Shown here is a 196-nucleotide sequence from Horornis vulcanius, a member of the family "Connexin-43 internal ribosome entry site (IRES)". The match comes from Rfam's covariance-model search (107 bits). Rfam 15.1 lists 657 matches to the family in 497 species. A reference for the family is Schiavi et al. (1999), "Connexin43 mRNA contains a functional internal ribosome entry site", FEBS Lett. Rfam's curators write: This family represents the connexin-43 internal ribosome entry site (IRES) which allows cap independent translation during conditions such as heat shock and stress.
RNA sequence: ACUUUUUACGAGGUAUCAGCACUUUUCUUUCAUUAGUGGGGAAGGAAGGAUGAAAAAUACAAAACAGCAGUAGACUUUUAAAGUUUAAAUAGACAGGUCUGAGUGCCUGAACGUGCUCUUCCAUUUUAGUUUAACCCUCCAAAGAAGUACUCUGAUCCAUUUUCACUGCUGAUCAGCAAGGGUAAGUUGUUGCAAG
Number, nucleotide and partner (000 for none) at each position: 001a000002c000003u019004u018005u000006u000007u015008a014009c013010g000011a000012g000013g009014u008015a007016u000017c000018a004019g003020c000021a000022c000023u000024u000025u000026u000027c000028u000029u146030u145031c144032a000033u142034u141035a000036g139037u000038g137039g136040g135041g132042a131043a130044g000045g000046a000047a000048g000049g125050a124051u123052g122053a000054a000055a000056a120057a119058u000059a000060c000061a000062a000063a000064a000065c000066a000067g000068c000069a000070g000071u000072a100073g099074a098075c097076u096077u095078u000079u000080a000081a000082a000083g000084u000085u000086u000087a000088a000089a000090u000091a000092g000093a000094c000095a077096g076097g075098u074099c073100u072101g116102a000103g114104u113105g112106c000107c000108u000109g000110a000111a000112c105113g104114u103115g000116c101117u000118c000119u057120u056121c000122c052123a051124u050125u049126u000127u000128a000129g000130u043131u042132u041133a000134a000135c040136c039137c038138u000139c036140c000141a034142a033143a000144g031145a030146a029147g000148u000149a000150c000151u000152c000153u000154g000155a190156u000157c000158c000159a000160u189161u182162u181163u180164c000165a000166c176167u175168g174169c000170u000171g000172a000173u000174c168175a167176g166177c000178a000179a000180g163181g162182g161183u000184a000185a000186g000187u000188u000189g160190u155191u000192g000193c000194a000195a000196g000